This 108-nucleotide RNA from Massilia violaceinigra belongs to the Rfam family "Glycine riboswitch aptamer".
RNA sequence: AAGGCGUUAUCGGGAGAGUCUGUCGGUUACAAGCUGGUCUUGUAUGCCGACGGCGCCGAAGGAGCAACCGCCCCGGAAUCUCUCAGGCAAAAGGACCGAUAACCCAUU
Numbered sequence: 001a002a003g004g005c006g007u008u009a010u011c012g013g014g015a016g017a018g019u020c021u022g023u024c025g026g027u028u029a030c031a032a033g034c035u036g037g038u039c040u041u042g043u044a045u046g047c048c049g050a051c052g053g054c055g056c057c058g059a060a061g062g063a064g065c066a067a068c069c070g071c072c073c074c075g076g077a078a079u080c081u082c083u084c085a086g087g088c089a090a091a092a093g094g095a096c097c098g099a100u101a102a103c104c105c106a107u108u
Base pairs, nucleotide, nucleotide: 006103007102008101009100010099011098012097013096020053021052022051023050024049025048026047027046055088056087057086058084059083062082063081064080068076069075